[Rfam]
RNA sequence: GAGAGAUGAUGAAUAAUUUAUUUGGUCCGUGUUUCUGAAUAAAAUUGAUUGAUAAAACCUACCAAUCUCUGAUCUC
Numbered sequence: 001g002a003g004a005g006a007u008g009a010u011g012a013a014u015a016a017u018u019u020a021u022u023u024g025g026u027c028c029g030u031g032u033u034u035c036u037g038a039a040u041a042a043a044a045u046u047g048a049u050u051g052a053u054a055a056a057a058c059c060u061a062c063c064a065a066u067c068u069c070u071g072a073u074c075u076c
Stems, first nucleotide, its partner, number of pairs: 001076004